[Rfam]
RNA sequence: GCAUGGGUUUGGAUUUAUGACAGGCCUGUCCCCCUGGGCCUCUCAUAAUACCCUAUGCCAGAGCAGACUGUCCUCGAACCAUUGCCCGGCCUCUGUUCCGUAGGCUGCUGGCACUGAAGCGGGUUGCAUGGGG
Numbered sequence: 001g002c003a004u005g006g007g008u009u010u011g012g013a014u015u016u017a018u019g020a021c022a023g024g025c026c027u028g029u030c031c032c033c034c035u036g037g038g039c040c041u042c043u044c045a046u047a048a049u050a051c052c053c054u055a056u057g058c059c060a061g062a063g064c065a066g067a068c069u070g071u072c073c074u075c076g077a078a079c080c081a082u083u084g085c086c087c088g089g090c091c092u093c094u095g096u097u098c099c100g101u102a103g104g105c106u107g108c109u110g111g112c113a114c115u116g117a118a119g120c121g122g123g124u125u126g127c128a129u130g131g132g133g
Stems, first nucleotide, its partner, number of pairs: 001058004005053004015048006022041003025037002069126002072123003080116002085111002087107006